[Rfam]
RNA sequence: AGCGUUGCGCAGUGGCAGUAUCAUAGCCAAUGAGGUUUAUCCGAGGCGCGAUUAUUGCUAAUUGAAAACUUUUCCCAAUACAACAAUGCUAGCUAACUUUUGGCUUAUCUGUAAAUAACGGAAUCAUUUAUAUGG
Numbered sequence: 001a002g003c004g005u006u007g008c009g010c011a012g013u014g015g016c017a018g019u020a021u022c023a024u025a026g027c028c029a030a031u032g033a034g035g036u037u038u039a040u041c042c043g044a045g046g047c048g049c050g051a052u053u054a055u056u057g058c059u060a061a062u063u064g065a066a067a068a069c070u071u072u073u074c075c076c077a078a079u080a081c082a083a084c085a086a087u088g089c090u091a092g093c094u095a096a097c098u099u100u101u102g103g104c105u106u107a108u109c110u111g112u113a114a115a116u117a118a119c120g121g122a123a124u125c126a127u128u129u130a131u132a133u134g135g
Stems, first nucleotide, its partner, number of pairs: 020052003024048001026047003034042002083112003086108003091105006124135004
Dot-bracket structure: ...................(((.(.(((.....((.....))..)))).)))..............................((((((..((((((...))))))))).)))...........((((....))))
RNA: U4 spliceosomal RNA
Organism: Sciurus vulgaris